[Rfam]
RNA sequence: GUGCAUGUAUUCGUCUCAAUCCAUAUAUGUUGAAGUGGAUUGGAGUGUAAUUAAACUAAGUUCCAUUUCAUUCCACUCCAACACAUAUAGAUUGAAGUGAAUACACAU
Numbered sequence: 001g002u003g004c005a006u007g008u009a010u011u012c013g014u015c016u017c018a019a020u021c022c023a024u025a026u027a028u029g030u031u032g033a034a035g036u037g038g039a040u041u042g043g044a045g046u047g048u049a050a051u052u053a054a055a056c057u058a059a060g061u062u063c064c065a066u067u068u069c070a071u072u073c074c075a076c077u078c079c080a081a082c083a084c085a086u087a088u089a090g091a092u093u094g095a096a097g098u099g100a101a102u103a104c105a106c107a108u
Base pairs, nucleotide, nucleotide: 006105007104008103009102010101011100012099013098014097016095017094018093019092020091021090023088024087025086026085028083029082030081031080032079035076036075037074038073039072041070042069043068045066046065047064
Annotation: This 108-nucleotide sequence from Miscanthus lutarioriparius belongs to the Rfam family "MIR5565 microRNA precursor family". It scores 80 bits against the family's covariance model. Gene Ontology terms of the family: RISC complex and miRNA-mediated post-transcriptional gene silencing. The organism belongs to Miscanthus, within Eukaryota.